[Rfam]
RNA sequence: AUGAAGUGAAGAUAGAAUUCAAGCUCAAUGCACUGAAAUACAUUUUUAUGAUGUGAAGUGUGAAUCUCGACAGGUUCUGAUCAU
Numbered sequence: 001a002u003g004a005a006g007u008g009a010a011g012a013u014a015g016a017a018u019u020c021a022a023g024c025u026c027a028a029u030g031c032a033c034u035g036a037a038a039u040a041c042a043u044u045u046u047u048a049u050g051a052u053g054u055g056a057a058g059u060g061u062g063a064a065u066c067u068c069g070a071c072a073g074g075u076u077c078u079g080a081u082c083a084u
Base pairs, nucleotide, nucleotide: 001084002083003082004081
RNA: Small nucleolar RNA snoR14
Organism: Anisodus acutangulus